[Rfam]
Description: ZMP/ZTP riboswitch aptamer (pfl RNA motif): an 85-nucleotide RNA sequence from Prauserella marina. The family's consensus secondary structure is taken from published work.

RNA sequence: AGUUGCAGCGACUGGCGCCAUCGAGGUGGAGCACCACCGGGGAGCGAGAGACCAGCGGCCGGCACCGCGCGCCUGGGUGCCCCGG
Numbered sequence: 001a002g003u004u005g006c007a008g009c010g011a012c013u014g015g016c017g018c019c020a021u022c023g024a025g026g027u028g029g030a031g032c033a034c035c036a037c038c039g040g041g042g043a044g045c046g047a048g049a050g051a052c053c054a055g056c057g058g059c060c061g062g063c064a065c066c067g068c069g070c071g072c073c074u075g076g077g078u079g080c081c082c083c084g085g
Stems, first nucleotide, its partner, number of pairs: 003050002008045002012041002014073005026037004062080005